Background:
This 131-nucleotide RNA sequence from Nannospalax galili belongs to the Rfam family "Small nucleolar RNA SNORA65". Gene Ontology terms of the family: RNA processing and nucleolus. It scores 89 bits against the family's covariance model. For this family Rfam cites "RNomics: an experimental approach that identifies 201 candidates for novel, small, non-messenger RNAs in mouse" (Huttenhofer et al., EMBO J, 2001). U65 belongs to the H/ACA class of snoRNAs which are thought to guide the sites of modification of uridines to pseudouridines. The organism belongs to Nannospalax, within Eukaryota.
RNA sequence: CCUGCCACUGCACCUGACCAGUUCUUGUUUGCUGGUGCAAUCCAGUGGUGAGCUGAAAGUAGGCCCCAACUCUUAGAAAACAGGGCUGUCCUAUAUGUGAAUGAUUCUGUGCCCACAGCAUGAGAACAACC
Numbered sequence: 001c002c003u004g005c006c007a008c009u010g011c012a013c014c015u016g017a018c019c020a021g022u023u024c025u026u027g028u029u030u031g032c033u034g035g036u037g038c039a040a041u042c043c044a045g046u047g048g049u050g051a052g053c054u055g056a057a058a059g060u061a062g063g064c065c066c067c068a069a070c071u072c073u074u075a076g077a078a079a080a081c082a083g084g085g086c087u088g089u090c091c092u093a094u095a096u097g098u099g100a101a102u103g104a105u106u107c108u109g110u111g112c113c114c115a116c117a118g119c120a121u122g123a124g125a126a127c128a129a130c131c
Base pairs, nucleotide, nucleotide: 005048006047007046008045009044010043017036018035019034020033021032064124066122068121070118071117076113081109082108083107084106085105089101091099